[Rfam]
RNA sequence: CUCUUAUCCAGAGAGGCGGAGGGAUUGGCCCUACGAAGCCUCGGCAACAGGCCGCAUGCGGUACUGUGCCAAGUCCAGUAGCGUUUGUGCUACAAAGAUAAGAA
Numbered sequence: 001c002u003c004u005u006a007u008c009c010a011g012a013g014a015g016g017c018g019g020a021g022g023g024a025u026u027g028g029c030c031c032u033a034c035g036a037a038g039c040c041u042c043g044g045c046a047a048c049a050g051g052c053c054g055c056a057u058g059c060g061g062u063a064c065u066g067u068g069c070c071a072a073g074u075c076c077a078g079u080a081g082c083g084u085u086u087g088u089g090c091u092a093c094a095a096a097g098a099u100a101a102g103a104a
Stems, first nucleotide, its partner, number of pairs: 002103007013042005021031003025078004043070004048066002051062004074096001079092005